MIR473 microRNA precursor family: an 80-nucleotide sequence from Nyssa sinensis. It scores 55 bits against the family's covariance model. Gene Ontology terms of the family: miRNA-mediated post-transcriptional gene silencing and RISC complex. On this family, see Lu et al., Plant Cell 2005: "Novel and mechanical stress-responsive MicroRNAs in Populus trichocarpa that are absent from Arabidopsis".

RNA sequence: UUUGCUCACUCUCCUUCAAGGGCUUCUGGCGCUACAUUGAGCGGGUGAGAGCCAGAAGCCUUUGGGGGGGAGUGGACUAA
Numbered sequence: 001u002u003u004g005c006u007c008a009c010u011c012u013c014c015u016u017c018a019a020g021g022g023c024u025u026c027u028g029g030c031g032c033u034a035c036a037u038u039g040a041g042c043g044g045g046u047g048a049g050a051g052c053c054a055g056a057a058g059c060c061u062u063u064g065g066g067g068g069g070g071a072g073u074g075g076a077c078u079a080a
Stems, first nucleotide, its partner, number of pairs: 006075010017064010